[Rfam]
RNA sequence: UACUUUUGCACCCGUAUUGAGACAAACUCAAUCUACAUAAUAAUCAUUUAAAUAAAUAUUAGCAUG
Numbered sequence: 001u002a003c004u005u006u007u008g009c010a011c012c013c014g015u016a017u018u019g020a021g022a023c024a025a026a027c028u029c030a031a032u033c034u035a036c037a038u039a040a041u042a043a044u045c046a047u048u049u050a051a052a053u054a055a056a057u058a059u060u061a062g063c064a065u066g
Stems, first nucleotide, its partner, number of pairs: 016032006
Shown here is a 66-nucleotide RNA from Flavobacterium urocaniciphilum, a member of the family "S15-Flavobacteria ribosomal protein leader". Its Rfam clan is "Ribosomal Protein S15 Leader clan". Pairs were carried over by alignment from the consensus structure, which is taken from published work. It is annotated as a cis-regulatory leader. It scores 66 bits against the family's covariance model. The source organism's lineage runs through Bacteria, Pseudomonadati, Bacteroidota, Flavobacteriaceae and Flavobacterium.